[Rfam]
DUF3800-IX RNA: a 70-nucleotide sequence.
RNA sequence: GACCUACUUACCGAACAGUCACCGGACGGUGGCAUGCCUGGGACAUCCAGGAUUAGGGAGUAGGUCGUUU
Dot-bracket structure: ((((((((..((.....((((((....))))))..((((.........))).)..)).))))))))....
Rfam classes the family as a small RNA. Rfam describes the family as follows. Actinobacteria, Firmicutes (1 example), Nitrospirae, Proteobacteria, Verrucomicrobia (1 example). The family's consensus secondary structure is taken from published work. Rfam's curators put it in the seed alignment.